The family of this 582-nucleotide part of an RNA from Methanopyrus kandleri is "Archaeal small subunit ribosomal RNA". The family is grouped with related families in Rfam's "SSU clan". The literature on the family includes a 2001 paper in Science by Yusupov et al., "Crystal structure of the ribosome at 5.5 A resolution". Lineage of the source: Archaea > Methanobacteriati > Methanopyri > Methanopyrales > Methanopyrus kandleri. The sequence is in the family's curated seed alignment.
RNA sequence: UGGCGGGGGAGCACCACAACCGGUGGAGCCUGCGGUUUAAUUGGAUUCAACGCCGGAAACCUUACCGGGGGCGACAGCAGGAUGAAGGCCAGGUUGACGACCUUGCCGGACGAGCUGAGAGGAGGUGCAUGGCCGCCGUCAGCUCGUGCCGUGAGGUGUCCUGUUAAGUCAGGUAACGAGCGAGACCCCCGCCCGCAGUUGCCAGCGGGCCCCGUAAGGGGCGCCGGGCACUCUGCGGGGAUCGCCGCCGUUAAGGCGGAUGAAAGUGGGGGCGACGGCAGGUCCGUAUGCCCCGAAACCCCCGGGCUACACGCGGGCUACAAUGGCGGGGACAAUGGGAUCCGACCCCGAAAGGGGGAGGAAAUCCCCUAAACCCCGUCGUAGUUCGGAUUGCGGGCUGCAACUCGCCCGCAUGAAGGUGGAAUCGGUAGUAACCGUGCCUCAGAAUGGCACGGUGAAUACGUCCCUGCUCCUUGCACACACCGCCCGUCACGCCACCCGAGCCCCCCGGGGGCAAGCCCCCGGUCCGCAAGGGCUGGGGGCGAGCCCCCGGGGGGUGAGGGGGGCGAAGUCGUAACAAGG
Numbered sequence: 001u002g003g004c005g006g007g008g009g010a011g012c013a014c015c016a017c018a019a020c021c022g023g024u025g026g027a028g029c030c031u032g033c034g035g036u037u038u039a040a041u042u043g044g045a046u047u048c049a050a051c052g053c054c055g056g057a058a059a060c061c062u063u064a065c066c067g068g069g070g071g072c073g074a075c076a077g078c079a080g081g082a083u084g085a086a087g088g089c090c091a092g093g094u095u096g097a098c099g100a101c102c103u104u105g106c107c108g109g110a111c112g113a114g115c116u117g118a119g120a121g122g123a124g125g126u127g128c129a130u131g132g133c134c135g136c137c138g139u140c141a142g143c144u145c146g147u148g149c150c151g152u153g154a155g156g157u158g159u160c161c162u163g164u165u166a167a168g169u170c171a172g173g174u175a176a177c178g179a180g181c182g183a184g185a186c187c188c189c190c191g192c193c194c195g196c197a198g199u200u201g202c203c204a205g206c207g208g209g210c211c212c213c214g215u216a217a218g219g220g221g222c223g224c225c226g227g228g229c230a231c232u233c234u235g236c237g238g239g240g241a242u243c244g245c246c247g248c249c250g251u252u253a254a255g256g257c258g259g260a261u262g263a264a265a266g267u268g269g270g271g272g273c274g275a276c277g278g279c280a281g282g283u284c285c286g287u288a289u290g291c292c293c294c295g296a297a298a299c300c301c302c303c304g305g306g307c308u309a310c311a312c313g314c315g316g317g318c319u320a321c322a323a324u325g326g327c328g329g330g331g332a333c334a335a336u337g338g339g340a341u342c343c344g345a346c347c348c349c350g351a352a353a354g355g356g357g358g359a360g361g362a363a364a365u366c367c368c369c370u371a372a373a374c375c376c377c378g379u380c381g382u383a384g385u386u387c388g389g390a391u392u393g394c395g396g397g398c399u400g401c402a403a404c405u406c407g408c409c410c411g412c413a414u415g416a417a418g419g420u421g422g423a424a425u426c427g428g429u430a431g432u433a434a435c436c437g438u439g440c441c442u443c444a445g446a447a448u449g450g451c452a453c454g455g456u457g458a459a460u461a462c463g464u465c466c467c468u469g470c471u472c473c474u475u476g477c478a479c480a481c482a483c484c485g486c487c488c489g490u491c492a493c494g495c496c497a498c499c500c501g502a503g504c505c506c507c508c509c510g511g512g513g514g515c516a517a518g519c520c521c522c523c524g525g526u527c528c529g530c531a532a533g534g535g536c537u538g539g540g541g542g543c544g545a546g547c548c549c550c551c552g553g554g555g556g557g558u559g560a561g562g563g564g565g566g567c568g569a570a571g572u573c574g575u576a577a578c579a580a581g582g
Base pairs, nucleotide, nucleotide: 001480002479003477004476005475007474008473009472010471011470012469013468016464017463020428021427022426023425024424025321027319028318029317030316031315032314033313034312035310036309041056042055043054044053065305066304067303068302069301070300071299075117076116077115078114080111087107088106089105091103092102093101121294122293124292125291126290127289130288131287132283133282134281135279136278137277138276142181143180144179145178146177147176148157149156150155160173161172162171163170187271188270189269190268192239193238194237195236196235197234198233202228203227206226207225208224209222210221211220212219242262245259246258247257248256249255325380326379327378328377329376330375331374337368338367339366342361343360346357347356348355349354387418392413393412394411395410396409397408398407434456435455436454437453438452439451440450441449483581485578488574489573491571493568494567495566496565498563499562500561503558504557505556506555507554508553509552510551511550512549513548514547515546518543519542520541521540522539523538524537525536526535527534